The record is a 73-nucleotide sequence from Methanolacinia petrolearia, which matches "L4-Archaeoglobi ribosomal protein leades" in Rfam.
The base pairs follow the family's consensus structure, which is taken from published work.
The sequence is in the family's curated seed alignment.
The family's RNA type in Rfam is cis-regulatory leader.
NCBI's taxonomy places the organism under Archaea, Methanobacteriati, Methanomicrobia, Methanomicrobiaceae, Methanolacinia petrolearia.

[Rfam]
Nucleotides: 073
Base pairs, nucleotide, nucleotide: 001073002072003071004070005069009061010060011059012058013057019040020039021038026036027035028034029033043056044055045054046053047052
Number, partner (000 for none) and nucleotide at each position: 001073c002072u003071g004070a005069u006000a007000a008000a009061u010060g011059c012058g013057c014000c015000u016000c017000a018000a019040g020039g021038g022000u023000g024000g025000a026036c027035g028034a029033a030000a031000u032000u033029u034028u035027c036026g037000g038021c039020c040019c041000u042000u043056u044055a045054u046053c047052c048000g049000a050000c051000g052047g053046g054045a055044u056043a057013g058012c059011g060010c061009a062000c063000a064000a065000a066000u067000a068000g069005g070004u071003c072002a073001g